Shown here is a 134-nucleotide sequence from Ochotona princeps, a member of the family "Small nucleolar RNA SNORA71". Pairs were carried over by alignment from the consensus structure, which was predicted with PFOLD. For this family Rfam cites "The family of box ACA small nucleolar RNAs is defined by an evolutionarily conserved secondary structure and ubiquitous sequence elements essential for RNA accumulation" (Ganot et al., Genes Dev, 1997). Rfam 15.1 lists 1,805 matches to the family in 606 species.
RNA sequence: CCCUGUGUUCGAAAGUGAUCGUGGGCUGCCCGUGCCCUGGUCAUUGAUAGUGCAGGGAGAGCAGCUGUGGAAAGCGCUUCCCCGUGUUUGGAGGGUCCAGCGCCGUCCCUUGCAAACCCUGCAGCUUUCCCACA
Numbered sequence: 001c002c003c004u005g006u007g008u009u010c011g012a013a014a015g016u017g018a019u020c021g022u023g024g025g026c027u028g029c030c031c032g033u034g035c036c037c038u039g040g041u042c043a044u045u046g047a048u049a050g051u052g053c054a055g056g057g058a059g060a061g062c063a064g065c066u067g068u069g070g071a072a073a074g075c076g077c078u079u080c081c082c083c084g085u086g087u088u089u090g091g092a093g094g095g096u097c098c099a100g101c102g103c104c105g106u107c108c109c110u111u112g113c114a115a116a117c118c119c120u121g122c123a124g125c126u127u128u129c130c131c132a133c134a
Stems, first nucleotide, its partner, number of pairs: 001057009014045008023037004067131001069130007086117005091111005

It is one of the family's seed sequences.
The family's RNA type in Rfam is H/ACA-box small nucleolar RNA.